[Rfam]
Photosynthesis regulatory RNA1: an 80-nucleotide RNA from Nostoc commune. The literature on the family includes a 2014 paper in Plant Cell by Georg et al., "The small regulatory RNA SyR1/PsrR1 controls photosynthetic functions in cyanobacteria". From the family's description: Formerly known as Syr1 discovered in Synechocystis sp PCC 6803, is a regulatory factor controlling photosynthetic functions. PsrR1 interacts with the ribosome binding regions of several photosynthesis-related mRNAs. It is annotated as a small RNA. NCBI's taxonomy places the organism under Bacteria, Cyanophyceae, Nostocales, Nostoc, Nostoc commune.
Nucleotides: 080
Base pairs, nucleotide, nucleotide: 055076056075057074058073059072060071061070062069
Number, partner (000 for none) and nucleotide at each position: 001000a002000a003000a004000a005000a006000a007000a008000g009000a010000u011000u012000u013000c014000g015000g016000c017000a018000u019000c020000c021000g022000u023000a024000u025000a026000u027000c028000c029000c030000a031000u032000c033000g034000a035000c036000a037000u038000u039000u040000g041000g042000a043000a044000u045000u046000c047000u048000c049000c050000c051000a052000u053000c054000u055076a056075c057074c058073u059072c060071g061070g062069c063000u064000a065000u066000c067000a068000a069062g070061u071060c072059g073058g074057g075056g076055u077000u078000u079000u080000u